[Rfam]
This 182-nucleotide RNA from Lederbergia galactosidilytica belongs to the Rfam family "c-di-GMP-I riboswitch aptamer". GEMM was predicted in a large-scale screen for bacterial structured RNA regulatory elements. Gene Ontology term of the family: cyclic-di-GMP binding. The organism belongs to Lederbergia, within Bacteria.
RNA sequence: GACAGAAAAGAGCAAACCUGACGAAAGUCAGAGACGCAAAACCUCAGACCUAAGGUUAUUAGAAAUGCGCAAGCGCCUAGAGCUAGACAACAACCGCGACAUUAAGCAACUUAUCUAUCUACAUGCUAGGUUUUAAAAUUUCCUAUGCAUGAACAAAUAACUAUGGUAGCUGGGGUACCUAA
Number, nucleotide and partner (000 for none) at each position: 001g000002a000003c000004a000005g000006a000007a000008a000009a000010g000011a000012g037013c036014a000015a000016a000017c000018c031019u030020g029021a028022c027023g000024a000025a000026a000027g022028u021029c020030a019031g018032a000033g000034a000035c000036g013037c012038a000039a000040a176041a000042c174043c173044u000045c172046a171047g170048a167049c166050c165051u000052a000053a000054g000055g161056u160057u159058a158059u157060u156061a000062g000063a000064a000065a000066u000067g000068c000069g000070c000071a000072a000073g000074c000075g000076c000077c000078u000079a000080g000081a000082g000083c000084u000085a000086g000087a000088c000089a000090a000091c000092a000093a000094c000095c000096g000097c000098g000099a000100c000101a000102u000103u000104a000105a000106g000107c000108a000109a000110c000111u000112u000113a000114u000115c000116u000117a000118u000119c000120u000121a000122c000123a000124u000125g000126c000127u000128a000129g000130g000131u000132u000133u000134u000135a000136a000137a000138a000139u000140u000141u000142c000143c000144u000145a000146u000147g000148c000149a000150u000151g000152a000153a000154c000155a000156a060157a059158u058159a057160a056161c055162u000163a000164u000165g050166g049167u048168a000169g000170c047171u046172g045173g043174g042175g000176u040177a000178c000179c000180u000181a000182a000